[Rfam]
Notes:
A member of the RNA family "ZMP/ZTP riboswitch aptamer (pfl RNA motif)" from Dactylosporangium siamense, 86 nucleotides long.
RNA sequence: UCCGCGGGCGGGUACUGGCGAGGGUGGAGCACCACCGGGGACCCGGCCGGAUCGAGGGUGUGGCGCCGACCGCCUGGGCGCCUCCG
Numbered sequence: 001u002c003c004g005c006g007g008g009c010g011g012g013u014a015c016u017g018g019c020g021a022g023g024g025u026g027g028a029g030c031a032c033c034a035c036c037g038g039g040g041a042c043c044c045g046g047c048c049g050g051a052u053c054g055a056g057g058g059u060g061u062g063g064c065g066c067c068g069a070c071c072g073c074c075u076g077g078g079c080g081c082c083u084c085c086g
Base pairs, nucleotide, nucleotide: 005049006048007047009045010044011043012042015039016038017074018073019072020071024035025034026033027032063081064080065079066078067077